RNA: t44 RNA
RNA sequence: AGUGAAUAACUAAAAAUUCACACACAUUUCGACACUAUGUCCGGGGUGUCGCUUUAAACAGCGAUCGGGGAUAGGGGAAUGUGGAGGCAUAAC
Numbered sequence: 001a002g003u004g005a006a007u008a009a010c011u012a013a014a015a016a017u018u019c020a021c022a023c024a025c026a027u028u029u030c031g032a033c034a035c036u037a038u039g040u041c042c043g044g045g046g047u048g049u050c051g052c053u054u055u056a057a058a059c060a061g062c063g064a065u066c067g068g069g070g071a072u073a074g075g076g077g078a079a080u081g082u083g084g085a086g087g088c089a090u091a092a093c
Stems, first nucleotide, its partner, number of pairs: 023083008035074004040069004048065005